[Rfam]
RNA sequence: UGUUUUCGCCCGCAAGGGCGUUUCCUCCCUAGAUUUUGGACCGCACUUUUGUGCGGUCUUUUUUUAUGCGCGUU
Numbered sequence: 001u002g003u004u005u006u007c008g009c010c011c012g013c014a015a016g017g018g019c020g021u022u023u024c025c026u027c028c029c030u031a032g033a034u035u036u037u038g039g040a041c042c043g044c045a046c047u048u049u050u051g052u053g054c055g056g057u058c059u060u061u062u063u064u065u066a067u068g069c070g071c072g073u074u
Stems, first nucleotide, its partner, number of pairs: 008019004038059009
Shown here is a 74-nucleotide RNA from Pseudochrobactrum saccharolyticum, a member of the family "Makes More Granules Regulator RNA (mmgR)".
Rfam's curators write: SuhB later renamed mmgR (makes more granules regulator) was a putative non-coding RNA found multiple times in the Agrobacterium tumefaciens genome and related alpha-proteobacteria.
The pairing is the family consensus, mapped onto this sequence.